[Rfam]
RNA sequence: CCUGUGGAGUGCUAUAUAAACUAAAGUAGCUUCGGCAAAAUGGAGUACAUUGAAACAGGAA
Numbered sequence: 001c002c003u004g005u006g007g008a009g010u011g012c013u014a015u016a017u018a019a020a021c022u023a024a025a026g027u028a029g030c031u032u033c034g035g036c037a038a039a040a041u042g043g044a045g046u047a048c049a050u051u052g053a054a055a056c057a058g059g060a061a
Stems, first nucleotide, its partner, number of pairs: 001059005009048005021043003029036002

Rfam assigns this 61-nucleotide RNA sequence from Clostridium senegalense to the family "RAGATH-18 RNA". Taxonomically the source falls in Clostridium senegalense (Bacteria, Bacillati, Bacillota, Clostridiaceae). Actinobacteria, Firmicutes, Fusobacteria, Thermotogae (1 example).